[Rfam]
RNA sequence: GUACUCCCUCCGUCCUAUAAAAUAAGAGUGUUUUUGACACUAGUGUAGUUUCAAAAACGCUCUUAUAUAAUGGGACGGAGGGAGUAU
Numbered sequence: 001g002u003a004c005u006c007c008c009u010c011c012g013u014c015c016u017a018u019a020a021a022a023u024a025a026g027a028g029u030g031u032u033u034u035u036g037a038c039a040c041u042a043g044u045g046u047a048g049u050u051u052c053a054a055a056a057a058c059g060c061u062c063u064u065a066u067a068u069a070a071u072g073g074g075a076c077g078g079a080g081g082g083a084g085u086a087u
Base pairs, nucleotide, nucleotide: 003085004084005083007081008080009079010078011077013075014074015073016072017071020068022066023065024064025063026062027061028060029059030058031057032056033055034054035053036052037051039049040048041047

MIR1120/MIR1122 microRNA precursor family: an 87-nucleotide sequence from Triticum aestivum. The family's consensus secondary structure was predicted with RNAalifold. Its family is annotated with miRNA-mediated post-transcriptional gene silencing and RISC complex in the Gene Ontology. For this family Rfam cites "Cloning and characterization of microRNAs from wheat (Triticum aestivum L.)" (Yao et al., Genome Biol, 2007). NCBI's taxonomy places the organism under Eukaryota, Streptophyta, Magnoliopsida, commelinids, Triticum.